c-di-GMP-I riboswitch aptamer: a 76-nucleotide sequence from Lachnospira multipara.
The family's consensus secondary structure is taken from published work.
Taxonomically the source falls in Lachnospira (Bacteria, Bacillati, Bacillota, Lachnospirales).
RNA sequence: UUCAAUAUUGGGCAAAGCAGGGGAAAUCCUGUGACGCAAAACUAGAGGGCCUUUAAAAUGGUAGCCAGGUGCAUAA
Numbered sequence: 001u002u003c004a005a006u007a008u009u010g011g012g013c014a015a016a017g018c019a020g021g022g023g024a025a026a027u028c029c030u031g032u033g034a035c036g037c038a039a040a041a042c043u044a045g046a047g048g049g050c051c052u053u054u055a056a057a058a059u060g061g062u063a064g065c066c067a068g069g070u071g072c073a074u075a076a
Stems, first nucleotide, its partner, number of pairs: 012037002017032006040070001042068002047066002049062003